[Rfam]
RNA: Ribosomal S15 leader
Organism: Permianibacter aggregans
RNA sequence: CCCCGAACCUGCAUUAGUGAGCGGGUCCGGAUUGUCCUCAACACCCACAUUUGGAGUGCAUCAUGUCACUAAGCCUUGAGCAGAAAAACCAGAUCAUCGCCGACUUCGGUCGCGGCAAG
Numbered sequence: 001c002c003c004c005g006a007a008c009c010u011g012c013a014u015u016a017g018u019g020a021g022c023g024g025g026u027c028c029g030g031a032u033u034g035u036c037c038u039c040a041a042c043a044c045c046c047a048c049a050u051u052u053g054g055a056g057u058g059c060a061u062c063a064u065g066u067c068a069c070u071a072a073g074c075c076u077u078g079a080g081c082a083g084a085a086a087a088a089c090c091a092g093a094u095c096a097u098c099g100c101c102g103a104c105u106u107c108g109g110u111c112g113c114g115g116c117a118a119g
Stems, first nucleotide, its partner, number of pairs: 007026006050073005056067001